This 359-nucleotide sequence from Pararobbsia silviterrae belongs to the Rfam family "transfer-messenger RNA".
A reference for the family is Williams and Bartel (1996), "Phylogenetic analysis of tmRNA secondary structure", RNA.
Taxonomically the source falls in Pararobbsia (Bacteria, Pseudomonadati, Pseudomonadota, Betaproteobacteria).
About the family: Bacterial tmRNA, also known as 10Sa RNA or SsrA, is named for its dual tRNA and mRNA-like properties. Its role is to liberate the mRNA from a stalled ribosome. To accomplish this part of the tmRNA is used as a reading frame that ends in a translation stop signal.
The family's RNA type in Rfam is non-coding RNA gene.
[Rfam]
RNA sequence: GGGGGCGACCUGGUUUCGACAGGGGUAGCGAAGCGGCUCAGGGCAUGCCGAGGACCCGUCACCUCGUUAAUCAAUGGGAAAAACGUAACUGCAAACGACGAUACGUUCGCACUGGCAGCCUAAGGGCCGCCGUCCUCGUACUAGCUCGCUGACGGGCUAGGGUCGCAAGACCACGCGAGGUCAUAUACGUCAGAUAAGCCUGCGUGGCGUCACGACGCGUGGGACGAAAACUUAGUGAAUCGCCGUCCGGCAGCGUGUUCGUCCGCGUCCGUCCGGUUAAAUCAAAUGACUGAACUAAGCAUGUAGAACUGGUCGUAGAGUACUUCUGGACGCGGGUUCGAUUCCCGCCGCCUCCACCA
Numbered sequence: 001g002g003g004g005g006c007g008a009c010c011u012g013g014u015u016u017c018g019a020c021a022g023g024g025g026u027a028g029c030g031a032a033g034c035g036g037c038u039c040a041g042g043g044c045a046u047g048c049c050g051a052g053g054a055c056c057c058g059u060c061a062c063c064u065c066g067u068u069a070a071u072c073a074a075u076g077g078g079a080a081a082a083a084c085g086u087a088a089c090u091g092c093a094a095a096c097g098a099c100g101a102u103a104c105g106u107u108c109g110c111a112c113u114g115g116c117a118g119c120c121u122a123a124g125g126g127c128c129g130c131c132g133u134c135c136u137c138g139u140a141c142u143a144g145c146u147c148g149c150u151g152a153c154g155g156g157c158u159a160g161g162g163u164c165g166c167a168a169g170a171c172c173a174c175g176c177g178a179g180g181u182c183a184u185a186u187a188c189g190u191c192a193g194a195u196a197a198g199c200c201u202g203c204g205u206g207g208c209g210u211c212a213c214g215a216c217g218c219g220u221g222g223g224a225c226g227a228a229a230a231c232u233u234a235g236u237g238a239a240u241c242g243c244c245g246u247c248c249g250g251c252a253g254c255g256u257g258u259u260c261g262u263c264c265g266c267g268u269c270c271g272u273c274c275g276g277u278u279a280a281a282u283c284a285a286a287u288g289a290c291u292g293a294a295c296u297a298a299g300c301a302u303g304u305a306g307a308a309c310u311g312g313u314c315g316u317a318g319a320g321u322a323c324u325u326c327u328g329g330a331c332g333c334g335g336g337u338u339c340g341a342u343u344c345c346c347g348c349c350g351c352c353u354c355c356a357c358c359a
Base pairs, nucleotide, nucleotide: 001355002354003353004352005351006350007349020328021327022326023325024324025323026322027321033316034315035314036313037312039311040310041309044303045302046301047300048299049066050065051064052063053062055078056077057076058075059074111133112132114131115130116129118127119126134180135179136178137177138176139175141160142159144157145156146155149193150192151191152190153189154188199223200222201221202220203219204218210238211237212236213235242277243276244275245274248271249270250269253266254265255264257295258294259293260292261290262289263288332348333347334346335345336344